Record summary:
A member of the RNA family "Betaproteobacteria toxic small RNA" from Ramlibacter pinisoli, 65 nucleotides long. About the family: Overexpression in amino aid rich medium attenuates growth, suggesting role in repressing amino acid intake and metabolism.
[Rfam]
Nucleotides: 065
Base pairs, nucleotide, nucleotide: 008028009027010026011025012024013023033058034057035056036055037054039052040051041050
Number, partner (000 for none) and nucleotide at each position: 001000u002000g003000u004000c005000u006000c007000c008028u009027c010026c011025a012024c013023c014000u015000u016000c017000u018000c019000c020000u021000u022000u023013g024012g025011u026010g027009g028008a029000c030000u031000u032000a033058g034057c035056c036055c037054c038000c039052g040051g041050a042000c043000c044000g045000c046000a047000a048000g049000g050041u051040c052039c053000a054037g055036g056035g057034g058033c059000u060000u061000u062000u063000u064000u065000c